[Rfam]
RNA sequence: UUCGGUCCUCGGUAGUGGCCUCCGGAGGAUUCCUUCCGUGGGCCCCGAUCGAUGACCGGC
Numbered sequence: 001u002u003c004g005g006u007c008c009u010c011g012g013u014a015g016u017g018g019c020c021u022c023c024g025g026a027g028g029a030u031u032c033c034u035u036c037c038g039u040g041g042g043c044c045c046c047g048a049u050c051g052a053u054g055a056c057c058g059g060c
Base pairs, nucleotide, nucleotide: 002059003058004057005056006055007054009052010051011050012049013048017044018043019042020041021040023038024037025036026035027034028033